[Rfam]
RNA: bip internal ribosome entry site (IRES)
RNA sequence: CGCUGGCCAAGACAUCACCGACGCACCGACUUGGGUUUUCGUGUGUGAGAGGUAAGUGUCGCGGCCUGCCUUUCCGGACCUGCCAAUUACCUUGUCCGCGGCUCCUCCUGAUUUCGGGCCCUGUUGUCCUCAGCUCGGUAACCUUGGUGCGCUCCCGUGUUGCGGCUUGUGGCUGGUUUGCCUGUGAAACCUUACCCGCUGACUGACUGACUGGCCGACGGCGCCCGCAAGAUGAAGCUGUCCCUGGUGGCUGCGGUGCUGCUG
Numbered sequence: 001c002g003c004u005g006g007c008c009a010a011g012a013c014a015u016c017a018c019c020g021a022c023g024c025a026c027c028g029a030c031u032u033g034g035g036u037u038u039u040c041g042u043g044u045g046u047g048a049g050a051g052g053u054a055a056g057u058g059u060c061g062c063g064g065c066c067u068g069c070c071u072u073u074c075c076g077g078a079c080c081u082g083c084c085a086a087u088u089a090c091c092u093u094g095u096c097c098g099c100g101g102c103u104c105c106u107c108c109u110g111a112u113u114u115c116g117g118g119c120c121c122u123g124u125u126g127u128c129c130u131c132a133g134c135u136c137g138g139u140a141a142c143c144u145u146g147g148u149g150c151g152c153u154c155c156c157g158u159g160u161u162g163c164g165g166c167u168u169g170u171g172g173c174u175g176g177u178u179u180g181c182c183u184g185u186g187a188a189a190c191c192u193u194a195c196c197c198g199c200u201g202a203c204u205g206a207c208u209g210a211c212u213g214g215c216c217g218a219c220g221g222c223g224c225c226c227g228c229a230a231g232a233u234g235a236a237g238c239u240g241u242c243c244c245u246g247g248u249g250g251c252u253g254c255g256g257u258g259c260u261g262c263u264g
Stems, first nucleotide, its partner, number of pairs: 004253006016159003020155001031116001033114003056104001058102007163175005